A member of the RNA family "Bacterial large subunit ribosomal RNA" from Pontibacter cellulosilyticus, 344 nucleotides of a longer RNA. Taxonomically the source falls in Pontibacter (Bacteria, Bacteroidota, Cytophagia, Cytophagales). The family's consensus secondary structure is taken from published work. The family has 102 seed sequences and 51,934 matches in Rfam 15.1.
RNA sequence: CGAGUGAAUCACGGCCAAGGAACUCGGCAAAAUGGCCCUGUAACUUCGGGAGAAGGGGCGCUUCCUCCUAGCAAUAGGAGAAGCCGCAGUGAAAAGGCCCAGGCGACUGUUUAACAAAAACACAUGGCUUUGCGAAAUCGAGAGAUGAAGUAUAAGGCCUGACACCUGCCCGGUGCCGGAAGGUUAAGAGGGGAUGUUAGCCGCAAGGCGAAGCAUUGAAUCGAAGCCCCGGUAAACGGCGGCCGUAACUAUAACGGUCCUAAGGUAGCGAAAUUCCUUGUCGGGUAAGUUCCGACCUGCACGAAUGGUGUAACGAUCUGGGCGCUGUCUCAGCCGUGAGCUCG
Numbered sequence: 001c002g003a004g005u006g007a008a009u010c011a012c013g014g015c016c017a018a019g020g021a022a023c024u025c026g027g028c029a030a031a032a033u034g035g036c037c038c039u040g041u042a043a044c045u046u047c048g049g050g051a052g053a054a055g056g057g058g059c060g061c062u063u064c065c066u067c068c069u070a071g072c073a074a075u076a077g078g079a080g081a082a083g084c085c086g087c088a089g090u091g092a093a094a095a096g097g098c099c100c101a102g103g104c105g106a107c108u109g110u111u112u113a114a115c116a117a118a119a120a121c122a123c124a125u126g127g128c129u130u131u132g133c134g135a136a137a138u139c140g141a142g143a144g145a146u147g148a149a150g151u152a153u154a155a156g157g158c159c160u161g162a163c164a165c166c167u168g169c170c171c172g173g174u175g176c177c178g179g180a181a182g183g184u185u186a187a188g189a190g191g192g193g194a195u196g197u198u199a200g201c202c203g204c205a206a207g208g209c210g211a212a213g214c215a216u217u218g219a220a221u222c223g224a225a226g227c228c229c230c231g232g233u234a235a236a237c238g239g240c241g242g243c244c245g246u247a248a249c250u251a252u253a254a255c256g257g258u259c260c261u262a263a264g265g266u267a268g269c270g271a272a273a274u275u276c277c278u279u280g281u282c283g284g285g286u287a288a289g290u291u292c293c294g295a296c297c298u299g300c301a302c303g304a305a306u307g308g309u310g311u312a313a314c315g316a317u318c319u320g321g322g323c324g325c326u327g328u329c330u331c332a333g334c335c336g337u338g339a340g341c342u343c344g
Stems, first nucleotide, its partner, number of pairs: 001344004009339007018330003035059005044049001060084005066079005085089001097323007104315002108122003126159007133150001137146003163310004168240003173237002175233005182228003188222002193217005200209002241259006260264001270297001280296006